Background:
TPP riboswitch aptamer (THI element): a 114-nucleotide sequence from Ensifer meliloti. NCBI's taxonomy places the organism under Bacteria, Pseudomonadati, Pseudomonadota, Hyphomicrobiales, Ensifer meliloti.
RNA sequence: GCUGCUCUAACGGGGUGCCCUGGCCGGCUUUGCGACCAUGGCUGAGAGGCUUCGAGCCAACCCGCGGAACCUGAUCCGGCUCAUACCGGCGGAGGGAUUAGAAGCGAUCGGACC
Dot-bracket structure: .....(((((((((..(((.(((............))).)))......(((...)))...)))).....(((...((((......))))...)))..)))))............